[Rfam]
RNA: mir-160 microRNA precursor family
Organism: Nyssa sinensis
RNA sequence: AUCUGCCUGGCUCCCUGGAUGCCAUCUAAGAAGCUUGUCAUAAGUCUUGUCUUCUUCCUAGUUGGCACCCAAGGAGUCAUGCAGAG
Numbered sequence: 001a002u003c004u005g006c007c008u009g010g011c012u013c014c015c016u017g018g019a020u021g022c023c024a025u026c027u028a029a030g031a032a033g034c035u036u037g038u039c040a041u042a043a044g045u046c047u048u049g050u051c052u053u054c055u056u057c058c059u060a061g062u063u064g065g066c067a068c069c070c071a072a073g074g075a076g077u078c079a080u081g082c083a084g085a086g
Base pairs, nucleotide, nucleotide: 002085003084004083005082006081008079009078010077011076012075013074014073016071017070018069020067021066022065023064024063027060028059